Rfam assigns this 70-nucleotide RNA from Tribolium castaneum to the family "mir-1175 microRNA precursor family". The family's consensus secondary structure was predicted with RNAalifold. The organism belongs to Tribolium, within Eukaryota. Its family is annotated with miRNA-mediated post-transcriptional gene silencing and RISC complex in the Gene Ontology.

RNA sequence: UAAAGUAAGUGGAGCAGUGGUCUCUUCACUUGGUUUUUAUAGUGAGAUUCAACUCCUCCAUCUCAUUUUU
Numbered sequence: 001u002a003a004a005g006u007a008a009g010u011g012g013a014g015c016a017g018u019g020g021u022c023u024c025u026u027c028a029c030u031u032g033g034u035u036u037u038u039a040u041a042g043u044g045a046g047a048u049u050c051a052a053c054u055c056c057u058c059c060a061u062c063u064c065a066u067u068u069u070u
Stems, first nucleotide, its partner, number of pairs: 008063002010060005017054001018052001023047002026045005